This 61-nucleotide RNA sequence from Lusitaniella coriacea belongs to the Rfam family "Plastid-psbN 5UTR RNA".
Lineage of the source: Bacteria > Cyanobacteriota > Cyanophyceae > Spirulinales > Lusitaniella coriacea.
Pairs were carried over by alignment from the consensus structure, which was predicted with LocARNA.
By type it is a cis-regulatory element.
Plastid psbN is a non-coding RNA (ncRNA) recognised in plastids. It was reported as a conserved 11 stem-loop in the prime untranslated region (5UTR) of psbN genes.

RNA sequence: AAAAACGGCCAUGAGUGGAGUUGUUCCCCAACCGGGAGCAACUUUUCCGUAUUCAGAGUUG
Numbered sequence: 001a002a003a004a005a006c007g008g009c010c011a012u013g014a015g016u017g018g019a020g021u022u023g024u025u026c027c028c029c030a031a032c033c034g035g036g037a038g039c040a041a042c043u044u045u046u047c048c049g050u051a052u053u054c055a056g057a058g059u060u061g
Base pairs, nucleotide, nucleotide: 017045018044019043020042021041022040023039024038025037026036027035
Background: For this family Rfam cites "Retrograde signaling in plants: A critical review focusing on the GUN pathway and beyond" (Richter et al., Plant Commun, 2023).